Record summary
The family of this 80-nucleotide RNA from Scleropages formosus is "mir-219 microRNA precursor family". For this family Rfam cites "Vertebrate microRNA genes" (Lim et al., Science, 2003). The match comes from Rfam's covariance-model search (75 bits).
RNA sequence: CUAGCAGCUGAUUGUCCAAACGCAAUUCUUGCGAAAUUACAGAGAAAACCCAAGAAUUGUGCCUGGACAUCUGUUGCUGG
Dot-bracket structure: .((((((..(((.(((((..(((((((((((...................)))))))))))..))))))))..)))))).